Source information:
Shown here is a 79-nucleotide RNA from Danionella cerebrum, a member of the family "Small nucleolar RNA SNORD103/SNORD85". A reference for the family is Huttenhofer et al. (2001), "RNomics: an experimental approach that identifies 201 candidates for novel, small, non-messenger RNAs in mouse", EMBO J. It is annotated as a C/D-box small nucleolar RNA. Gene Ontology terms of the family: nucleolus and RNA processing.
RNA sequence: GUUGGCUAUGAUGACAAUACUUGCCCUCUCUGAGAGAGCUGCUCUGUUAUGAUAAUUUUAUAAUUGUGUCUGAGCCAGU
Number, nucleotide and partner (000 for none) at each position: 001g079002u078003u077004g076005g075006c074007u000008a000009u000010g000011a000012u000013g000014a000015c000016a000017a000018u000019a000020c000021u000022u000023g000024c000025c000026c000027u000028c000029u000030c000031u000032g000033a000034g000035a000036g000037a000038g000039c000040u000041g000042c000043u000044c000045u000046g000047u000048u000049a000050u000051g000052a000053u000054a000055a000056u000057u000058u000059u000060a000061u000062a000063a000064u000065u000066g000067u000068g000069u000070c000071u000072g000073a000074g006075c005076c004077a003078g002079u001